[Rfam]
RNA sequence: GCCUUGUGGUUCCUGUAGUCAGAUACAAAGUUCUGAACUGUGGGUUUUUGUAAAGGGGCGCGAUAUUGAUUCUGCGAUUUUAUGCAUGGAAGCUGCCACUAUAGCAGCCUUCCAUAGCCCGGUUGCAGAUACAUUG
Numbered sequence: 001g002c003c004u005u006g007u008g009g010u011u012c013c014u015g016u017a018g019u020c021a022g023a024u025a026c027a028a029a030g031u032u033c034u035g036a037a038c039u040g041u042g043g044g045u046u047u048u049u050g051u052a053a054a055g056g057g058g059c060g061c062g063a064u065a066u067u068g069a070u071u072c073u074g075c076g077a078u079u080u081u082a083u084g085c086a087u088g089g090a091a092g093c094u095g096c097c098a099c100u101a102u103a104g105c106a107g108c109c110u111u112c113c114a115u116a117g118c119c120c121g122g123u124u125g126c127a128g129a130u131a132c133a134u135u136g
Base pairs, nucleotide, nucleotide: 001059002058003057004056007050008049012044013043014042015041016040017039019036020035021034022033023032072128074126075125076124077123078122079121084118085117086115087114088113089112091110092109093107094106095105096104
Rfam assigns this 136-nucleotide RNA from Perca flavescens to the family "Small nucleolar RNA SNORA84". Taxonomically the source falls in Perca (Eukaryota, Opisthokonta, Teleostei, Perciformes). Rfam 15.1 lists 757 matches to the family in 629 species. For this family Rfam cites "Experimental RNomics: identification of 140 candidates for small non-messenger RNAs in the plant Arabidopsis thaliana" (Marker et al., Curr Biol, 2002). The family's consensus secondary structure was predicted with WAR. Rfam classes the family as an H/ACA-box small nucleolar RNA.